RNA sequence: ACGUGCCCGGGCGCGCAGUCGCGCGGGCGAAGGAACACAACACCGUGCCGGGAAGAUUUCCGGCACUUCAGGGCGUU
Numbered sequence: 001a002c003g004u005g006c007c008c009g010g011g012c013g014c015g016c017a018g019u020c021g022c023g024c025g026g027g028c029g030a031a032g033g034a035a036c037a038c039a040a041c042a043c044c045g046u047g048c049c050g051g052g053a054a055g056a057u058u059u060c061c062g063g064c065a066c067u068u069c070a071g072g073g074c075g076u077u
Stems, first nucleotide, its partner, number of pairs: 004029005013024004045066006

The family of this 77-nucleotide RNA from Streptomyces palmae is "nrdJ RNA". A search with the family's covariance model found it, with a score of 47 bits.